[Rfam]
The family of this 89-nucleotide RNA sequence from Jatropha curcas is "Small nucleolar RNA R32/R81/Z41". A search with the family's covariance model found it, with a score of 58 bits. It is annotated as a C/D-box small nucleolar RNA. The base pairs follow the family's consensus structure, which was predicted with PFOLD. NCBI's taxonomy places the organism under Eukaryota, Tracheophyta, Crotonoideae, Jatropheae, Jatropha. The family has 6 seed sequences and 238 matches in Rfam 15.1. A reference for the family is Barneche et al. (2001), "Identification of 66 box C/D snoRNAs in Arabidopsis thaliana: extensive gene duplications generated multiple isoforms predicting new ribosomal RNA 2'-O-methylation sites", J Mol Biol.
RNA sequence: AAUUGAAAAUGAUGAAAGUAAUGAAAAGGGUGAUGAUCAAUUUCAUAUGAUCUAUAAUGCCUUUUCGCUGCGUUCUUUCUGAUUCAAUU
Numbered sequence: 001a002a003u004u005g006a007a008a009a010u011g012a013u014g015a016a017a018g019u020a021a022u023g024a025a026a027a028g029g030g031u032g033a034u035g036a037u038c039a040a041u042u043u044c045a046u047a048u049g050a051u052c053u054a055u056a057a058u059g060c061c062u063u064u065u066c067g068c069u070g071c072g073u074u075c076u077u078u079c080u081g082a083u084u085c086a087a088u089u
Base pairs, nucleotide, nucleotide: 004086005085006084007083